A member of the RNA family "TPP riboswitch aptamer (THI element)" from Nakamurella aerolata, 95 nucleotides long.
[Rfam]
RNA sequence: GACCGUGACGCGGGGUGCCGCCAAGCGCGGCUGAGAUCACACCCGUCGAACCUGCACUAGUUCGUACUAGCGAAGGGACGUCACAUGGCUGACGC
Numbered sequence: 001g002a003c004c005g006u007g008a009c010g011c012g013g014g015g016u017g018c019c020g021c022c023a024a025g026c027g028c029g030g031c032u033g034a035g036a037u038c039a040c041a042c043c044c045g046u047c048g049a050a051c052c053u054g055c056a057c058u059a060g061u062u063c064g065u066a067c068u069a070g071c072g073a074a075g076g077g078a079c080g081u082c083a084c085a086u087g088g089c090u091g092a093c094g095c
Stems, first nucleotide, its partner, number of pairs: 006083005011045004016039001017031005051076003057070004
A search with the family's covariance model found it, with a score of 68 bits. The source organism's lineage runs through Bacteria, Actinomycetota, Nakamurellales, Nakamurellaceae and Nakamurella.